[Rfam]
Shown here is a 153-nucleotide RNA sequence from Cephalotus follicularis, a member of the family "U12 minor spliceosomal RNA". NCBI's taxonomy places the organism under Eukaryota, Tracheophyta, Magnoliopsida, fabids, Cephalotus. The family's RNA type in Rfam is spliceosomal small nuclear RNA. The pairing is the family consensus, mapped onto this sequence. Rfam links the family to the GO terms U12 snRNP, pre-mRNA branch point binding and mRNA branch site recognition.

Nucleotides: 153
Stems, first nucleotide, its partner, number of pairs: 004023005032053008055075004091153001097150005103144001105141001108138003117131004
Number, partner (000 for none) and nucleotide at each position: 001000u002000u003000g004023c005022c006021u007020u008019a009000a010000a011000c012000u013000a014000a015000u016000g017000a018000g019008u020007a021006a022005g023004g024000a025000a026000a027000a028000c029000a030000a031000a032053g033052c034051a035050a036049g037048c038047g039046g040000u041000g042000a043000g044000a045000g046039c047038u048037g049036c050035u051034u052033g053032c054000c055075g056074u057073g058072c059000u060000g061000c062000g063000u064000a065000u066000a067000a068000a069000c070000g071000u072058g073057c074056a075055c076000a077000a078000g079000a080000a081000u082000u083000u084000a085000u086000g087000g088000a089000g090000g091153g092000a093000u094000c095000a096000u097150a098149g099148g100147c101146u102000g103144g104000c105141c106000u107000a108138g109137u110136g111000u112000u113000g114000a115000c116000g117131c118130u119129g120128c121000u122000u123000a124000c125000u126000u127000u128120g129119c130118a131117g132000a133000a134000c135000u136110c137109a138108c139000u140000u141105g142000u143000g144103c145000g146101g147100g148099c149098c150097u151000c152000c153091c